[Rfam]
RNA sequence: CGAUUACCAAACCCUAUUUCCACCUCCACGUGGUGACCACUGGGAGCACUUUUUUACCGAAAAGCUGCAGACGGAGAAGG
Numbered sequence: 001c002g003a004u005u006a007c008c009a010a011a012c013c014c015u016a017u018u019u020c021c022a023c024c025u026c027c028a029c030g031u032g033g034u035g036a037c038c039a040c041u042g043g044g045a046g047c048a049c050u051u052u053u054u055u056a057c058c059g060a061a062a063a064g065c066u067g068c069a070g071a072c073g074g075a076g077a078a079g080g
Stems, first nucleotide, its partner, number of pairs: 013080003017076004022034003045066003051062003
Dot-bracket structure: ............(((.((((.(((.......)))..........(((...(((......))).)))......)))).)))
drz-agam-1 ribozyme: an 80-nucleotide RNA sequence from Hermetia illucens. The family's consensus secondary structure is taken from published work.